[Rfam]
RNA sequence: UGCUGUGAUGGUGUAAUUUGCGUCUGACCUUGUGAACAGUGACAGUUUGCCUGCUGUCUCAUAGCUGGCACAAGAGAGUGGCGAGCAUUGAGUUCUGAGCA
Numbered sequence: 001u002g003c004u005g006u007g008a009u010g011g012u013g014u015a016a017u018u019u020g021c022g023u024c025u026g027a028c029c030u031u032g033u034g035a036a037c038a039g040u041g042a043c044a045g046u047u048u049g050c051c052u053g054c055u056g057u058c059u060c061a062u063a064g065c066u067g068g069c070a071c072a073a074g075a076g077a078g079u080g081g082c083g084a085g086c087a088u089u090g091a092g093u094u095c096u097g098a099g100c101a
Base pairs, nucleotide, nucleotide: 001101002100003099021083022082023081024080030073031072032071033070034069039065040064041058042057043056044055045054
Dot-bracket structure: (((.................((((.....(((((....(((((((........))))).....))...)))))......))))...............)))
Small nucleolar RNA SNORD16: a 101-nucleotide sequence from Albula glossodonta.
Taxonomically the source falls in Albula (Eukaryota, Eumetazoa, Teleostei, Elopocephalai).
It is annotated as a C/D-box small nucleolar RNA.
For this family Rfam cites "A novel small nucleolar RNA (U16) is encoded inside a ribosomal protein intron and originates by processing of the pre-mRNA" (Fragapane et al., EMBO J, 1993).
Rfam 15.1 lists 1,321 matches to the family in 655 species.
The match comes from Rfam's covariance-model search (84 bits).
Its family is annotated with RNA processing and nucleolus in the Gene Ontology.